[Rfam]
RNA sequence: AGGAAGUGUACUGAGAACUCUUAAGAUAGAGGCGAUAGGGCAGUACACUCCGUGUACUGCCCUAUCGCCUCUAUCUUAAGAGUUCUCAGUGCACUUCCUAUUUUCAAAAUCCCAGGGGAG
Dot-bracket structure: .(((((((((((((((.(((((.((((.(.((((((((((((((((((...)))))))))))))))))).).)))).))))).)))))))))))))))......................
Overview
Actinobacteria sRNA Ms_IGR-7: a 120-nucleotide RNA sequence. For this family Rfam cites "Identification of small RNAs in Mycobacterium smegmatis using heterologous Hfq" (Li et al., RNA, 2013).